[Rfam]
Shown here is a 105-nucleotide sequence from Vagococcus teuberi, a member of the family "THF (Tetrahydrofolate) riboswitch aptamer". A search with the family's covariance model found it, with a score of 80 bits. Rfam's curators write: Tetrahydrofolate (THF) riboswitch was first reported for Ames et al. as an RNA motif in 5' untranslated (5'-UTR)regions of folate transport and biosynthesis genes in Firmicutes genomes. The literature on the family includes a 2011 paper in Structure by Trausch et al., "The structure of a tetrahydrofolate-sensing riboswitch reveals two ligand binding sites in a single aptamer".
RNA sequence: AACAGAGUAGGAAAUAUAGCGUCAAGUGCUACUAGGAUGGGAUGUUGCCUAGUGGACGAAAAGCACAAGUGGAGUGCUUGCGGCCAUAUUUCUGCAUUCGCUGCA
Numbered sequence: 001a002a003c004a005g006a007g008u009a010g011g012a013a014a015u016a017u018a019g020c021g022u023c024a025a026g027u028g029c030u031a032c033u034a035g036g037a038u039g040g041g042a043u044g045u046u047g048c049c050u051a052g053u054g055g056a057c058g059a060a061a062a063g064c065a066c067a068a069g070u071g072g073a074g075u076g077c078u079u080g081c082g083g084c085c086a087u088a089u090u091u092c093u094g095c096a097u098u099c100g101c102u103g104c105a
Stems, first nucleotide, its partner, number of pairs: 003103003010093008019084001020082003026057002029055008040099005061079006